About this RNA
The record is a 67-nucleotide RNA sequence from Pararhodobacter aggregans, which matches "L2-Alphaproteobacteria ribosomal protein leader" in Rfam. The base pairs follow the family's consensus structure, which is taken from published work.
RNA sequence: GGCCACCUUCGGGGGGCUUCACACAGACAGGCGGGGCAACCCGCCGCAAAGCAACGGAAGACAGAAA
Numbered sequence: 001g002g003c004c005a006c007c008u009u010c011g012g013g014g015g016g017c018u019u020c021a022c023a024c025a026g027a028c029a030g031g032c033g034g035g036g037c038a039a040c041c042c043g044c045c046g047c048a049a050a051g052c053a054a055c056g057g058a059a060g061a062c063a064g065a066a067a
Stems, first nucleotide, its partner, number of pairs: 001018004006014003030045006
On this family, see Eckert and Weinberg, BMC Microbiol 2020: "Discovery of 20 novel ribosomal leader candidates in bacteria and archaea".